Small nucleolar RNA SNORD25: a 94-nucleotide sequence from Oryza punctata. A search with the family's covariance model found it, with a score of 66 bits. On this family, see Tycowski et al., Nature 1996: "A mammalian gene with introns instead of exons generating stable RNA products". Gene Ontology terms of the family: RNA processing and nucleolus. Rfam classes the family as a C/D-box small nucleolar RNA. Its Rfam clan is "SNORD25 clan". The organism belongs to Oryza, within Eukaryota.

RNA sequence: GUUAUCAACGUGAGCCCUAACAGACCUGAAAUGAUUCUUGCGGAUAUGUUUGCUUGAUUCAGAGAACAUCUAAGGGACUCCAUUUGCCAUAGGC
Numbered sequence: 001g002u003u004a005u006c007a008a009c010g011u012g013a014g015c016c017c018u019a020a021c022a023g024a025c026c027u028g029a030a031a032u033g034a035u036u037c038u039u040g041c042g043g044a045u046a047u048g049u050u051u052g053c054u055u056g057a058u059u060c061a062g063a064g065a066a067c068a069u070c071u072a073a074g075g076g077a078c079u080c081c082a083u084u085u086g087c088c089a090u091a092g093g094c
Stems, first nucleotide, its partner, number of pairs: 002092004